The record is a 166-nucleotide RNA from Odocoileus virginianus, which matches "U1 spliceosomal RNA" in Rfam.
RNA sequence: UUAGCUAACUGGCAUGGGAAAUGCUGUGAGCACGGAGCUGGCUUUCCCAGGGCGUGUGGCUUAUCCAUGACAGUUUGGUUAUGCUGACCCCUGUGAGUUCCCCAAAUGUGGGAGACUCAGCUGCAUACUUUGUGGUAGUGGGGGACUGCGUGGACACUUUGCCCUG
Numbered sequence: 001u002u003a004g005c006u007a008a009c010u011g012g013c014a015u016g017g018g019a020a021a022u023g024c025u026g027u028g029a030g031c032a033c034g035g036a037g038c039u040g041g042c043u044u045u046c047c048c049a050g051g052g053c054g055u056g057u058g059g060c061u062u063a064u065c066c067a068u069g070a071c072a073g074u075u076u077g078g079u080u081a082u083g084c085u086g087a088c089c090c091c092u093g094u095g096a097g098u099u100c101c102c103c104a105a106a107u108g109u110g111g112g113a114g115a116c117u118c119a120g121c122u123g124c125a126u127a128c129u130u131u132g133u134g135g136u137a138g139u140g141g142g143g144g145a146c147u148g149c150g151u152g153g154a155c156a157c158u159u160u161g162c163c164c165u166g
Stems, first nucleotide, its partner, number of pairs: 012124003016048006023042004049092004056088001058085003062081002065078002094119003098114002101111002140165004145160001148157001150155001

From the family's description: U1 is a small nuclear RNA (snRNA) component of the spliceosome (involved in pre-mRNA splicing).
It scores 84 bits against the family's covariance model.
On this family, see Zwieb, Nucleic Acids Res 1997: "The uRNA database".
Pairs were carried over by alignment from the consensus structure, which is taken from published work.
Its Rfam clan is "U1 clan".
By type it is a spliceosomal small nuclear RNA.